RNA sequence: UUCCACGGGCCCCGGCCACUCCACUUUAUGGAUGGGGAACCGUGAAAAAAGGAGGAAAAGUUCAAGCCCAGGCUCGGGCUGCGGCAGCGUGGAGACCUGCCGUAAUGCGGGCGGCGCAAGCCCCCGCGAGGGCACAGCAGGCGGAGGCCCUGUGUCCGGAGUCGGAAAACAUGGCA
Numbered sequence: 001u002u003c004c005a006c007g008g009g010c011c012c013c014g015g016c017c018a019c020u021c022c023a024c025u026u027u028a029u030g031g032a033u034g035g036g037g038a039a040c041c042g043u044g045a046a047a048a049a050a051g052g053a054g055g056a057a058a059a060g061u062u063c064a065a066g067c068c069c070a071g072g073c074u075c076g077g078g079c080u081g082c083g084g085c086a087g088c089g090u091g092g093a094g095a096c097c098u099g100c101c102g103u104a105a106u107g108c109g110g111g112c113g114g115c116g117c118a119a120g121c122c123c124c125c126g127c128g129a130g131g132g133c134a135c136a137g138c139a140g141g142c143g144g145a146g147g148c149c150c151u152g153u154g155u156c157c158g159g160a161g162u163c164g165g166a167a168a169a170c171a172u173g174g175c176a
Stems, first nucleotide, its partner, number of pairs: 007040001010037005016031003066079004071163005080104008089096002107127005113122003130157008140149003
Dot-bracket structure: ......(..(((((.(((..........))).)))))..).........................[[[[.(((((]]]]((((((((.((....))))))))))..(((((.(((....))))))))..((((((((..(((....))))))))))).))))).............
Rfam assigns this 176-nucleotide RNA to the family "malK-I RNA". By type it is a cis-regulatory element. The base pairs follow the family's consensus structure, which is taken from published work.